[Rfam]
RNA sequence: GGGAGUGGGAGGACCGCUGACAGAGCCAGACUCUGAGGAAAGUCCCCUCUCCACGGUGCACAUGGGCCGCACAAGCGGCAGGUCGGAAACGAUCAGGUCAAUGCAGCAGAAACGAACGACGCGUGGGUUGAACGAUGAUGUCGAAAGACGGAGGUUUCCACGUGGUCGAUGAGACGAGCAACCCCAUGGGAGCAAGCCCAGACAGCCCUGACGACGCGGCACGCCGAGGGGCGGGUAGGGUGCACAGUUGAAUGCGGUCACCGUUUUUCGGGAACAGAAAGGGGCUUACUCCCCACUCCC
Numbered sequence: 001g002g003g004a005g006u007g008g009g010a011g012g013a014c015c016g017c018u019g020a021c022a023g024a025g026c027c028a029g030a031c032u033c034u035g036a037g038g039a040a041a042g043u044c045c046c047c048u049c050u051c052c053a054c055g056g057u058g059c060a061c062a063u064g065g066g067c068c069g070c071a072c073a074a075g076c077g078g079c080a081g082g083u084c085g086g087a088a089a090c091g092a093u094c095a096g097g098u099c100a101a102u103g104c105a106g107c108a109g110a111a112a113c114g115a116a117c118g119a120c121g122c123g124u125g126g127g128u129u130g131a132a133c134g135a136u137g138a139u140g141u142c143g144a145a146a147g148a149c150g151g152a153g154g155u156u157u158c159c160a161c162g163u164g165g166u167c168g169a170u171g172a173g174a175c176g177a178g179c180a181a182c183c184c185c186a187u188g189g190g191a192g193c194a195a196g197c198c199c200a201g202a203c204a205g206c207c208c209u210g211a212c213g214a215c216g217c218g219g220c221a222c223g224c225c226g227a228g229g230g231g232c233g234g235g236u237a238g239g240g241u242g243c244a245c246a247g248u249u250g251a252a253u254g255c256g257g258u259c260a261c262c263g264u265u266u267u268u269c270g271g272g273a274a275c276a277g278a279a280a281g282g283g284g285c286u287u288a289c290u291c292c293c294c295a296c297u298c299c300c
Stems, first nucleotide, its partner, number of pairs: 001300003005296005010290002012259006021035005040287003044284005049192004056222004061188005066079005081094005096183002102180003117168003120164008140149002196241004205232005

The family of this 300-nucleotide RNA sequence is "Archaeal RNase P". Its family is annotated with ribonuclease P activity, multimeric ribonuclease P complex and tRNA processing in the Gene Ontology. Rfam's curators write: Ribonuclease P (RNase P) is a ubiquitous endoribonuclease, found in archaea, bacteria and eukarya as well as chloroplasts and mitochondria. By type it is a ribozyme.